[Rfam]
RNA: bZIP non canonical Hac1/Xbp1 intron
Organism: Westerdykella ornata
RNA sequence: CCGACCUCGACCAGACACGAUAUCCUGCAGCGAUAUUGUGCGACCUGCAGUGUCAGUCGAGCUCGG
Number, nucleotide and partner (000 for none) at each position: 001c066002c065003g064004a063005c000006c061007u000008c059009g058010a057011c056012c000013a000014g000015a000016c000017a000018c000019g037020a036021u035022a034023u033024c032025c000026u000027g000028c000029a000030g000031c000032g024033a023034u022035a021036u020037u019038g000039u000040g000041c000042g054043a053044c052045c000046u000047g000048c000049a000050g000051u000052g044053u043054c042055a000056g011057u010058c009059g008060a000061g006062c000063u004064c003065g002066g001